RNA sequence: GACUACAGACUGAAGCUGUAUAUAAUUAGCCUAGCUUGAAAGUUCGACUUAUAUUUAUGUGUUCCAUUUCGAUGUUCUUUGUUGAGUGCUCGUUCUGUUUUCAUAAGUAAUAGCAAAAUUUCCAGCUUCAUAGCCCGAGCAUAAAGUGACGGCAUCCAUGAUUCAUGAAUUAACAGGAUAUUAUUAUGUCUACAACUACUGGCACAGUAAAAUGGUUUAACGAAGAGAAAGGUUUCGGUUUCAUCGAGCAGGAAAACGGCCCUGACGUUUUCGCUCAUUUCCGUGCUAUCGCUGGUGACGGUUUCAAAACUUUGGCUGAAGGCCAGAAAGUUGAGUUUACUGUUACUCAGGGCCAGAAAGGUCUUCAAGCAGAAAACAUCGUAGCACUUUAAUUUAAAGUGUUAUGUAACCGGUGUUGAAUUAAUGCCGGUUGCUCU
Numbered sequence: 001g002a003c004u005a006c007a008g009a010c011u012g013a014a015g016c017u018g019u020a021u022a023u024a025a026u027u028a029g030c031c032u033a034g035c036u037u038g039a040a041a042g043u044u045c046g047a048c049u050u051a052u053a054u055u056u057a058u059g060u061g062u063u064c065c066a067u068u069u070c071g072a073u074g075u076u077c078u079u080u081g082u083u084g085a086g087u088g089c090u091c092g093u094u095c096u097g098u099u100u101u102c103a104u105a106a107g108u109a110a111u112a113g114c115a116a117a118a119u120u121u122c123c124a125g126c127u128u129c130a131u132a133g134c135c136c137g138a139g140c141a142u143a144a145a146g147u148g149a150c151g152g153c154a155u156c157c158a159u160g161a162u163u164c165a166u167g168a169a170u171u172a173a174c175a176g177g178a179u180a181u182u183a184u185u186a187u188g189u190c191u192a193c194a195a196c197u198a199c200u201g202g203c204a205c206a207g208u209a210a211a212a213u214g215g216u217u218u219a220a221c222g223a224a225g226a227g228a229a230a231g232g233u234u235u236c237g238g239u240u241u242c243a244u245c246g247a248g249c250a251g252g253a254a255a256a257c258g259g260c261c262c263u264g265a266c267g268u269u270u271u272c273g274c275u276c277a278u279u280u281c282c283g284u285g286c287u288a289u290c291g292c293u294g295g296u297g298a299c300g301g302u303u304u305c306a307a308a309a310c311u312u313u314g315g316c317u318g319a320a321g322g323c324c325a326g327a328a329a330g331u332u333g334a335g336u337u338u339a340c341u342g343u344u345a346c347u348c349a350g351g352g353c354c355a356g357a358a359a360g361g362u363c364u365u366c367a368a369g370c371a372g373a374a375a376a377c378a379u380c381g382u383a384g385c386a387c388u389u390u391a392a393u394u395u396a397a398a399g400u401g402u403u404a405u406g407u408a409a410c411c412g413g414u415g416u417u418g419a420a421u422u423a424a425u426g427c428c429g430g431u432u433g434c435u436c437u
Stems, first nucleotide, its partner, number of pairs: 004020005026251002030246001038242002042240001044238002048232001049230002060227001062225002065222001067220002071218002074216003080188003086184003095176005105121003133153003190202003255344005264272002275333001277331004284325002286322002290315001294311001297310001349364003353361002366381001385401003389397003406434012

Record summary: cspA thermoregulator: a 437-nucleotide RNA sequence from Neptunomonas japonica. A reference for the family is Giuliodori et al. (2010), "The cspA mRNA is a thermosensor that modulates translation of the cold-shock protein CspA", Mol Cell. Taxonomically the source falls in Neptunomonas japonica (Bacteria, Pseudomonadota, Oceanospirillaceae, Neptunomonas). Rfam classes the family as an RNA thermoregulator. Pairs were carried over by alignment from the consensus structure, which is taken from published work.